[Rfam]
RNA: Small nucleolar RNA SNORD74
Organism: Otolemur garnettii
RNA sequence: GUGCCCUGCCUCUGAUGAAGCCCAUGUUGGUAGGGACAUCUGAGAGUUGAUGAAUGCCAACUGCUCUGAUGGUGGAGC
Numbered sequence: 001g002u003g004c005c006c007u008g009c010c011u012c013u014g015a016u017g018a019a020g021c022c023c024a025u026g027u028u029g030g031u032a033g034g035g036a037c038a039u040c041u042g043a044g045a046g047u048u049g050a051u052g053a054a055u056g057c058c059a060a061c062u063g064c065u066c067u068g069a070u071g072g073u074g075g076a077g078c
Stems, first nucleotide, its partner, number of pairs: 001078002004075002